[Rfam]
RNA sequence: CAUGAUUGGGAAAACCAGGAUUGUUUAGAGGGUAGAUGCAGUCGCCCCAACUCCGACAAAUACAUGCGAAUUUACUUUCAAUGUAUUGGUAAGGCGAGAAACAACUAUUUGGUUGGAAACUUUAAUCUUGCUAAGAAAUUAAAGAACUGC
Numbered sequence: 001c002a003u004g005a006u007u008g009g010g011a012a013a014a015c016c017a018g019g020a021u022u023g024u025u026u027a028g029a030g031g032g033u034a035g036a037u038g039c040a041g042u043c044g045c046c047c048c049a050a051c052u053c054c055g056a057c058a059a060a061u062a063c064a065u066g067c068g069a070a071u072u073u074a075c076u077u078u079c080a081a082u083g084u085a086u087u088g089g090u091a092a093g094g095c096g097a098g099a100a101a102c103a104a105c106u107a108u109u110u111g112g113u114u115g116g117a118a119a120c121u122u123u124a125a126u127c128u129u130g131c132u133a134a135g136a137a138a139u140u141a142a143a144g145a146a147c148u149g150c
Stems, first nucleotide, its partner, number of pairs: 006018004030047004038150004051098003056090002059087007068078003102115005120144007128136001
This 150-nucleotide sequence belongs to the Rfam family "IS605-orfB-II RNA". By type it is a small RNA.